[Rfam]
RNA sequence: CGGGGAAAGAAGACCCUGUUGAGCUUGACUCUAGUUUGACAUUGUGAAAAGACAUAGGGGGUGUAGAAUAGGUGGGAGCUUCGGCGCCGGUGAAAUACCACUACCCUUAUCGUUUUUUUACUUAAUCAAUGAAGCGGAACUGGUCUUCACCGACCAUUUUCUGGCGUUAAGGUCCUUCGCGGGCCGAUCCGGGUUGAUGACAUUGUCAGGUGGGGAGUUUGGCUGGGGCGGCACAUCUGUUAAACCAUAACGCAGGUGUCCUAAGGGGGACUCAUGGAGAACAGAAAUCUCCAGUAGAGCAAAAGGGCAAAAGUCCCCUUGAUUUUGAUUUUCAGUGUGAAUACAAACCAUGAAAGUGUGGCCUAUCGAUCCUUUAGUCCCUCGAAAUUUGAGGCUAGAGGUGCCAGAAAAGUUACCACAGGGAUAACUGGCUUGUGGCAGCCAAGCGUUCAUAGCGACGUUGCUUUUUGAUCCUUCGAUGUCGGCUCUUCCUAUCAUACCGAAGCAGAAUUCGGUAAGCGUUGGAUUGUUCACCCACUAAUAGGGAACGUGAGCUGGGUUUAGACCGUCGUGAGACAGGUUAGUUUUACCCUA
Numbered sequence: 001c002g003g004g005g006a007a008a009g010a011a012g013a014c015c016c017u018g019u020u021g022a023g024c025u026u027g028a029c030u031c032u033a034g035u036u037u038g039a040c041a042u043u044g045u046g047a048a049a050a051g052a053c054a055u056a057g058g059g060g061g062u063g064u065a066g067a068a069u070a071g072g073u074g075g076g077a078g079c080u081u082c083g084g085c086g087c088c089g090g091u092g093a094a095a096u097a098c099c100a101c102u103a104c105c106c107u108u109a110u111c112g113u114u115u116u117u118u119u120a121c122u123u124a125a126u127c128a129a130u131g132a133a134g135c136g137g138a139a140c141u142g143g144u145c146u147u148c149a150c151c152g153a154c155c156a157u158u159u160u161c162u163g164g165c166g167u168u169a170a171g172g173u174c175c176u177u178c179g180c181g182g183g184c185c186g187a188u189c190c191g192g193g194u195u196g197a198u199g200a201c202a203u204u205g206u207c208a209g210g211u212g213g214g215g216a217g218u219u220u221g222g223c224u225g226g227g228g229c230g231g232c233a234c235a236u237c238u239g240u241u242a243a244a245c246c247a248u249a250a251c252g253c254a255g256g257u258g259u260c261c262u263a264a265g266g267g268g269g270a271c272u273c274a275u276g277g278a279g280a281a282c283a284g285a286a287a288u289c290u291c292c293a294g295u296a297g298a299g300c301a302a303a304a305g306g307g308c309a310a311a312a313g314u315c316c317c318c319u320u321g322a323u324u325u326u327g328a329u330u331u332u333c334a335g336u337g338u339g340a341a342u343a344c345a346a347a348c349c350a351u352g353a354a355a356g357u358g359u360g361g362c363c364u365a366u367c368g369a370u371c372c373u374u375u376a377g378u379c380c381c382u383c384g385a386a387a388u389u390u391g392a393g394g395c396u397a398g399a400g401g402u403g404c405c406a407g408a409a410a411a412g413u414u415a416c417c418a419c420a421g422g423g424a425u426a427a428c429u430g431g432c433u434u435g436u437g438g439c440a441g442c443c444a445a446g447c448g449u450u451c452a453u454a455g456c457g458a459c460g461u462u463g464c465u466u467u468u469u470g471a472u473c474c475u476u477c478g479a480u481g482u483c484g485g486c487u488c489u490u491c492c493u494a495u496c497a498u499a500c501c502g503a504a505g506c507a508g509a510a511u512u513c514g515g516u517a518a519g520c521g522u523u524g525g526a527u528u529g530u531u532c533a534c535c536c537a538c539u540a541a542u543a544g545g546g547a548a549c550g551u552g553a554g555c556u557g558g559g560u561u562u563a564g565a566c567c568g569u570c571g572u573g574a575g576a577c578a579g580g581u582u583a584g585u586u587u588u589a590c591c592c593u594a
Stems, first nucleotide, its partner, number of pairs: 003593003007588002015422004020418002022414005028218004035210007044121010054110007071102005078085002125198005135191004143154003171185005221234001222232003235257006260361002266318006272298002275293006299308002323347003328342004349358003372400006380394004431472001433470001435469001437465006446456002483558001484556004488550001489547005496521001499516006523537003527533001564582004568577003